[Rfam]
RNA: Histone 3' UTR stem-loop
Organism: Perca flavescens
RNA sequence: CAAAAGGCUCUUUUAAGAGCCACCACACAUUCACCAAAGAGCUGAUU
Numbered sequence: 001c002a003a004a005a006g007g008c009u010c011u012u013u014u015a016a017g018a019g020c021c022a023c024c025a026c027a028c029a030u031u032c033a034c035c036a037a038a039g040a041g042c043u044g045a046u047u
Stems, first nucleotide, its partner, number of pairs: 006021006